[Rfam]
RNA sequence: GGACCCACCCGGCCGGGAAUAGUGCUCCUGGUUGUUUCCGGCUCGCGUGGGUGUGU
Numbered sequence: 001g002g003a004c005c006c007a008c009c010c011g012g013c014c015g016g017g018a019a020u021a022g023u024g025c026u027c028c029u030g031g032u033u034g035u036u037u038c039c040g041g042c043u044c045g046c047g048u049g050g051g052u053g054u055g056u
Stems, first nucleotide, its partner, number of pairs: 001054001003052006010045002012042011025030001
Dot-bracket structure: (.((((((.(((((((((((((..(....).))))))))))).)).)))))).)..
RNA: mir-1180 microRNA precursor family